Annotation: The record is a 165-nucleotide RNA sequence from Maylandia zebra, which matches "U1 spliceosomal RNA" in Rfam. The family has 100 seed sequences and 40,184 matches in Rfam 15.1. The source organism's lineage runs through Eukaryota, Actinopteri, Ctenosquamata, Acanthomorphata and Maylandia zebra complex. Rfam classes the family as a spliceosomal small nuclear RNA.
[Rfam]
RNA sequence: AUACUUACCUGGUAGGAGAGAUACCAUGAUCAAGAAGGUGGUUCUCUCAGGUCGAGGCUCAGCCAUUGCACUCUGGCUUUGCUGAAAGCCUGCGAAUUCCCCAAAUGUGGGAAUCUCGACUGUAUAAUUUCUGGUAGUGGGGGACUGCGUUCGCGCUCUCCCCUA
Numbered sequence: 001a002u003a004c005u006u007a008c009c010u011g012g013u014a015g016g017a018g019a020g021a022u023a024c025c026a027u028g029a030u031c032a033a034g035a036a037g038g039u040g041g042u043u044c045u046c047u048c049a050g051g052u053c054g055a056g057g058c059u060c061a062g063c064c065a066u067u068g069c070a071c072u073c074u075g076g077c078u079u080u081g082c083u084g085a086a087a088g089c090c091u092g093c094g095a096a097u098u099c100c101c102c103a104a105a106u107g108u109g110g111g112a113a114u115c116u117c118g119a120c121u122g123u124a125u126a127a128u129u130u131c132u133g134g135u136a137g138u139g140g141g142g143g144a145c146u147g148c149g150u151u152c153g154c155g156c157u158c159u160c161c162c163c164u165a
Stems, first nucleotide, its partner, number of pairs: 012123004016048006023042005049091004056083003061078004093118003096114003100110002139164006147156003